[Rfam]
RNA sequence: UGAUAUCAGGGUUCCAAAGUCAUACGACCACAUGAGCUUGCUCAUAAGUGGAUGUAUGACUUUGGAACCCGCCCCGACAUGAGCAUAAAAGCGGGAUUUUAAUCCUGCGAUAUGCGAAUGGUGGGGAUAGAUUGUGAGAGUGCGUAGCACGGAGCAAUCUAUAGAUAUCA
Numbered sequence: 001u002g003a004u005a006u007c008a009g010g011g012u013u014c015c016a017a018a019g020u021c022a023u024a025c026g027a028c029c030a031c032a033u034g035a036g037c038u039u040g041c042u043c044a045u046a047a048g049u050g051g052a053u054g055u056a057u058g059a060c061u062u063u064g065g066a067a068c069c070c071g072c073c074c075c076g077a078c079a080u081g082a083g084c085a086u087a088a089a090a091g092c093g094g095g096a097u098u099u100u101a102a103u104c105c106u107g108c109g110a111u112a113u114g115c116g117a118a119u120g121g122u123g124g125g126g127a128u129a130g131a132u133u134g135u136g137a138g139a140g141u142g143c144g145u146a147g148c149a150c151g152g153a154g155c156a157a158u159c160u161a162u163a164g165a166u167a168u169c170a
Base pairs, nucleotide, nucleotide: 001170002169003168004167005166006165007164011068012067013066014065017062018061019060020059021058022057023056024055025054026053028051029050030049031048032045033044034043035042036041073125074124075123076122078120079119080118083115084114085113086112091108092107093106094105095104096103097102129160130159131158132157133156134155135154140150141149142148143147
Dot-bracket structure: (((((((...((((..((((((((((.(((((((((....)))))..)))).))))))))))..))))....((((.(((..((((....(((((((....)))))))...))))..))).))))...(((((((....((((...))))...)))))))...)))))))